[Rfam]
RNA sequence: UGCCUUCAGGUGUUGCCCUUUCAUUGCCCCCCCCCUUGAUGAAAGAGGCGUCAGCAAAGGCAAACAUCAAGUCUUGGGUCGGCCUCUGACCGGUUCCUUAAUGGUGACCUGGUCAGAAGCUCCAUACCAAGAACAGAG
Numbered sequence: 001u002g003c004c005u006u007c008a009g010g011u012g013u014u015g016c017c018c019u020u021u022c023a024u025u026g027c028c029c030c031c032c033c034c035c036u037u038g039a040u041g042a043a044a045g046a047g048g049c050g051u052c053a054g055c056a057a058a059g060g061c062a063a064a065c066a067u068c069a070a071g072u073c074u075u076g077g078g079u080c081g082g083c084c085u086c087u088g089a090c091c092g093g094u095u096c097c098u099u100a101a102u103g104g105u106g107a108c109c110u111g112g113u114c115a116g117a118a119g120c121u122c123c124a125u126a127c128c129a130a131g132a133a134c135a136g137a138g
Base pairs, nucleotide, nucleotide: 002061003060004059005058006057011053012052014050015049016048017047018045019044020043021042022041023040024039025038073131074130075129076128078125079124081122082121086116087115088114089113090112091111092109093108096104097103
This 138-nucleotide RNA from Oryzias sinensis belongs to the Rfam family "Small nucleolar RNA SNORA13". The family is grouped with related families in Rfam's "SNORA13 clan".